[Rfam]
Shown here is a 551-nucleotide RNA from Drosophila picticornis, a member of the family "Bicoid 3'-UTR regulatory element". The family's consensus secondary structure is taken from published work. Rfam links the family to the GO term regulation of bicoid mRNA localization. About the family: This family represents the core structure of the bicoid 3'-UTR and consists of domains II, III, IV and V which are known to be essential for correct transport and localisation of bicoid mRNA during oocyte and embryo differentiation. The organism belongs to Hawaiian Drosophila, within Eukaryota.
RNA sequence: UGCCGAGUUUUUUUAAUGCAUUUUCUACUGACAUAAACUUAAGUCCAACUAUUUGGAAACUUUAUUUGUAAAGCGCUCUUUGAUCUCAAUGCUGUCUGGCUGGACAUUUGCCAAAGCCCAUGAACGCCCUACCAGACACUGUUGAGACAAAUAUGGGCUUUAAUUGAACGCUUUACAGAAGAAGUUUAUAAAUAAAUACAAAAUGCAUUUCUUUCUUAUAACUCAGGCCAACUGGCAUAGCAAGUAAAACUGUACUGAUCUAAAUGAAAAAUGUUUCUCUUCCUAAUAAUCGCAGGUCCUUCAAUGGACAUUAUCUGCCAUUAUCAGUCGAAGAUCGAACGUUUAACCAAUAAUGUUCUUCAGAAUAUUUUUAAGCUUUGUUAUGCCACAGUUUACAUGUUACAAUUAAACAUUCUUCACGUGAGAAUUGUUUACAAAUUGUCUCUAAACACAUGUGAAUCACAGGCCUCAGUUAUCUAAACGAAAUCUGUACUUACUUUCAGAAUGUAAGAGAGUUUUAUCAAUUGAAAAUGCAUUCAAAAUAUGUGUCU
Numbered sequence: 001u002g003c004c005g006a007g008u009u010u011u012u013u014u015a016a017u018g019c020a021u022u023u024u025c026u027a028c029u030g031a032c033a034u035a036a037a038c039u040u041a042a043g044u045c046c047a048a049c050u051a052u053u054u055g056g057a058a059a060c061u062u063u064a065u066u067u068g069u070a071a072a073g074c075g076c077u078c079u080u081u082g083a084u085c086u087c088a089a090u091g092c093u094g095u096c097u098g099g100c101u102g103g104a105c106a107u108u109u110g111c112c113a114a115a116g117c118c119c120a121u122g123a124a125c126g127c128c129c130u131a132c133c134a135g136a137c138a139c140u141g142u143u144g145a146g147a148c149a150a151a152u153a154u155g156g157g158c159u160u161u162a163a164u165u166g167a168a169c170g171c172u173u174u175a176c177a178g179a180a181g182a183a184g185u186u187u188a189u190a191a192a193u194a195a196a197u198a199c200a201a202a203a204u205g206c207a208u209u210u211c212u213u214u215c216u217u218a219u220a221a222c223u224c225a226g227g228c229c230a231a232c233u234g235g236c237a238u239a240g241c242a243a244g245u246a247a248a249a250c251u252g253u254a255c256u257g258a259u260c261u262a263a264a265u266g267a268a269a270a271a272u273g274u275u276u277c278u279c280u281u282c283c284u285a286a287u288a289a290u291c292g293c294a295g296g297u298c299c300u301u302c303a304a305u306g307g308a309c310a311u312u313a314u315c316u317g318c319c320a321u322u323a324u325c326a327g328u329c330g331a332a333g334a335u336c337g338a339a340c341g342u343u344u345a346a347c348c349a350a351u352a353a354u355g356u357u358c359u360u361c362a363g364a365a366u367a368u369u370u371u372u373a374a375g376c377u378u379u380g381u382u383a384u385g386c387c388a389c390a391g392u393u394u395a396c397a398u399g400u401u402a403c404a405a406u407u408a409a410a411c412a413u414u415c416u417u418c419a420c421g422u423g424a425g426a427a428u429u430g431u432u433u434a435c436a437a438a439u440u441g442u443c444u445c446u447a448a449a450c451a452c453a454u455g456u457g458a459a460u461c462a463c464a465g466g467c468c469u470c471a472g473u474u475a476u477c478u479a480a481a482c483g484a485a486a487u488c489u490g491u492a493c494u495u496a497c498u499u500u501c502a503g504a505a506u507g508u509a510a511g512a513g514a515g516u517u518u519u520a521u522c523a524a525u526u527g528a529a530a531a532u533g534c535a536u537u538c539a540a541a542a543u544a545u546g547u548g549u550c551u
Base pairs, nucleotide, nucleotide: 002550004548007545008544010542011541012540015537016536017535018534019533023529024528025527027525029523030522031521059185060184061183062182063181065179067177068176070174071173072172073171074170075169077167082148084146086145087144088143089142090141091140093138094137096135097134098133099132103129105126108123109122110121202495203494204492205491206490207487208486209485210484211483214481216480217479218478221473222472223471227467228466229465233388234387236385237384238383239382240381241380242378243377251373252372262357263356269344270343271342272341273340274339275338276337278334279333280332281331283327284326286324287323288322289321290320391463393462396455397454398453406438407437410431411430412428413427414426415425416424